Shown here is a 35-nucleotide RNA sequence from Kordia antarctica, a member of the family "DUF805b RNA".
RNA sequence: AAAGCGUUAUCUGAAAAGCUUUAAUAGAGUAAGAA
Numbered sequence: 001a002a003a004g005c006g007u008u009a010u011c012u013g014a015a016a017a018g019c020u021u022u023a024a025u026a027g028a029g030u031a032a033g034a035a
Stems, first nucleotide, its partner, number of pairs: 002021004010034003

The match comes from Rfam's covariance-model search (42 bits).
The base pairs follow the family's consensus structure, which is taken from published work.